[Rfam]
Nucleotides: 174
Stems, first nucleotide, its partner, number of pairs: 001016006028174003032170001035166002041159005046151005062146005071138003075134005081128001083111004089104004
Number, partner (000 for none) and nucleotide at each position: 001016u002015c003014c004013g005012u006011g007000g008000u009000g010000a011006c012005g013004c014003g015002g016001a017000a018000u019000c020000u021000g022000a023000a024000g025000g026000a027000a028174g029173u030172u031000c032170g033000a034000g035166g036165c037000a038000a039000a040000a041159u042158c043157u044156u045155g046151g047150u048149c049148u050147g051000a052000g053000g054000a055000a056000c057000a058000c059000g060000a061000a062146u063145c064144g065143c066142a067000u068000g069000a070000g071138g072137u073136u074000g075134u076133c077132u078131c079130a080000c081128c082000u083111g084110g085109a086108u087000a088000a089104g090103g091102u092101u093000g094000c095000a096000a097000a098000a099000c100000a101092a102091a103090c104089u105000g106000a107000a108086g109085u110084c111083c112000a113000a114000a115000a116000u117000a118000u119000c120000c121000u122000c123000g124000g125000a126000a127000a128081g129000a130079u131078g132077a133076g134075g135000c136073g137072a138071u139000a140000a141000a142066u143065g144064c145063g146062g147050c148049a149048g150047a151046u152000g153000g154000a155045u156044g157043a158042g159041a160000g161000g162000a163000a164000a165036g166035u167000g168000g169000g170032c171000a172030g173029a174028c
Rfam assigns this 174-nucleotide sequence from Lysinibacillus sp. 2017 to the family "Group II catalytic intron D1-D4-3". It scores 134 bits against the family's covariance model. The base pairs follow the family's consensus structure. On this family, see Bonen and Vogel, Trends Genet 2001: "The ins and outs of group II introns".